This 368-nucleotide sequence from Aurantimonas marianensis belongs to the Rfam family "Alphaproteobacteria transfer-messenger RNA". Gene Ontology term of the family: RNA catabolic process. About the family: Bacterial tmRNA, also known as 10Sa RNA or SsrA, is named for its dual tRNA and mRNA-like properties. Its role is to liberate the mRNA from a stalled ribosome. To accomplish this part of the tmRNA is used as a reading frame that ends in a translation stop signal. The broken mRNA is replaced in the ribosome by the tmRNA and translation of the tmRNA leads to addition of a proteolysis tag to the incomplete protein enabling recognition by a protease. The family is grouped with related families in Rfam's "tRNA clan".

RNA sequence: GCCCUUUUCAUGCCGGAACGAUCCCCUUAUAUUGCGGGUGCCGGCUUUCGGGUCGGCUAUGGCGAUAAACGGCCGAUGUAAUAAACCUUUCGGACCCGGGGGCGGUACCCGGCGCCUCCACCUGGACCCAUCAUCGAGUGUGCGCGAGCGAUGGCUCCAGGCGGGGGCGAAAUAGGAUCGACGAGGGCGUAAAGAUCGGACUUUUGCUCGGCAUGGUACCACCGUUAUCGGGCUGUUUUAUAGUUGCAAACGACAACUAUGCGGAAGCACGUCUCGCUGCGUAAGCAGUGUGAUCGCUUCAAAUCAAGCCCUGGGGGUUCGCACUUCUAGGCGGGGUUCGGAGGCACCUGGCAACAGAAGCCUCCACU
Numbered sequence: 001g002c003c004c005u006u007u008u009c010a011u012g013c014c015g016g017a018a019c020g021a022u023c024c025c026c027u028u029a030u031a032u033u034g035c036g037g038g039u040g041c042c043g044g045c046u047u048u049c050g051g052g053u054c055g056g057c058u059a060u061g062g063c064g065a066u067a068a069a070c071g072g073c074c075g076a077u078g079u080a081a082u083a084a085a086c087c088u089u090u091c092g093g094a095c096c097c098g099g100g101g102g103c104g105g106u107a108c109c110c111g112g113c114g115c116c117u118c119c120a121c122c123u124g125g126a127c128c129c130a131u132c133a134u135c136g137a138g139u140g141u142g143c144g145c146g147a148g149c150g151a152u153g154g155c156u157c158c159a160g161g162c163g164g165g166g167g168c169g170a171a172a173u174a175g176g177a178u179c180g181a182c183g184a185g186g187g188c189g190u191a192a193a194g195a196u197c198g199g200a201c202u203u204u205u206g207c208u209c210g211g212c213a214u215g216g217u218a219c220c221a222c223c224g225u226u227a228u229c230g231g232g233c234u235g236u237u238u239u240a241u242a243g244u245u246g247c248a249a250a251c252g253a254c255a256a257c258u259a260u261g262c263g264g265a266a267g268c269a270c271g272u273c274u275c276g277c278u279g280c281g282u283a284a285g286c287a288g289u290g291u292g293a294u295c296g297c298u299u300c301a302a303a304u305c306a307a308g309c310c311c312u313g314g315g316g317g318u319u320c321g322c323a324c325u326u327c328u329a330g331g332c333g334g335g336g337u338u339c340g341g342a343g344g345c346a347c348c349u350g351g352c353a354a355c356a357g358a359a360g361c362c363u364c365c366a367c368u
Base pairs, nucleotide, nucleotide: 040057041056042055043054044053045052046051061208062207063206064205065204071201073199074198075197076196077195086187087186088185090184091183092182096112097111098110099109100108113169114168115167116166117165118164119163209224210223211222214235215234216233219231220230334349335348336347337346340365341364342363343362344361345360